[Rfam]
RNA sequence: CAUCCAAUCAACUCAAUCACUACAUUCAUAUUAUUCGAGAUAUUUUCAUCUCCCAACAACAACCAGCCAACAUGUCUCCCUGCUCCUGCAACUGCUGCUCCGGCAACUGCAACUCUUGCUCUUGCAGCACCUGCUCCGUAAGUUGGCCUCUUUU
Dot-bracket structure: ................................................................................((((...(((.....)))...))))...(((......((....))......)))....................
RNA: A. fumigatus sRNA Afu_254